[Rfam]
RNA sequence: GCCCCGGUCUUUGGGGAGUAGCCUUCCUUCCGUCGCGAAGGAGAACGCGUCAACAUCCUCGGCUCUACUGCCGUGGCGCGUUCGACCGGUCCGGUUUGGCGAGACCAUUGAUGCGCCAUGCCGUUCCUGGCCGGACGGGCGUCGCGCAUCAUGGUUCGCUGACGUCCGGCCGU
Numbered sequence: 001g002c003c004c005c006g007g008u009c010u011u012u013g014g015g016g017a018g019u020a021g022c023c024u025u026c027c028u029u030c031c032g033u034c035g036c037g038a039a040g041g042a043g044a045a046c047g048c049g050u051c052a053a054c055a056u057c058c059u060c061g062g063c064u065c066u067a068c069u070g071c072c073g074u075g076g077c078g079c080g081u082u083c084g085a086c087c088g089g090u091c092c093g094g095u096u097u098g099g100c101g102a103g104a105c106c107a108u109u110g111a112u113g114c115g116c117c118a119u120g121c122c123g124u125u126c127c128u129g130g131c132c133g134g135a136c137g138g139g140c141g142u143c144g145c146g147c148a149u150c151a152u153g154g155u156u157c158g159c160u161g162a163c164g165u166c167c168g169g170c171c172g173u
Stems, first nucleotide, its partner, number of pairs: 026041003043083010060073004087172004

Record summary
The family of this 173-nucleotide RNA sequence from Caballeronia concitans is "Manganese Mn2+ riboswitch aptamer (yybP-ykoY)". From the family's description: This RNA was originally discovered in E. coli during a large scale screen and was named SraF. The family was later found to exist upstream of related families of protein genes in many bacteria, including the the yybP and ykoK genes in B. subtilis. The specific functions of these proteins are unknown, but this structured RNA element may be involved in their genetic regulation as a riboswitch. The match comes from Rfam's covariance-model search (73 bits). The base pairs follow the family's consensus structure.